RNA sequence: UUUCAUAACCGACUCCCCCCAAACCAAGACCUAUAGGGAGUAUAAAUUACGUCUUUAAUACCUGCCUCUGAGGGUGAGACAGGAAUAAUUUAUUAG
Numbered sequence: 001u002u003u004c005a006u007a008a009c010c011g012a013c014u015c016c017c018c019c020c021a022a023a024c025c026a027a028g029a030c031c032u033a034u035a036g037g038g039a040g041u042a043u044a045a046a047u048u049a050c051g052u053c054u055u056u057a058a059u060a061c062c063u064g065c066c067u068c069u070g071a072g073g074g075u076g077a078g079a080c081a082g083g084a085a086u087a088a089u090u091u092a093u094u095a096g
Stems, first nucleotide, its partner, number of pairs: 013040005026055005061083004066078002
Rfam assigns this 96-nucleotide RNA sequence from Lowelvirus tuscon4d to the family "PhotoRC-II RNA". By type it is a cis-regulatory element. A search with the family's covariance model found it, with a score of 71 bits. The base pairs follow the family's consensus structure, which is taken from published work.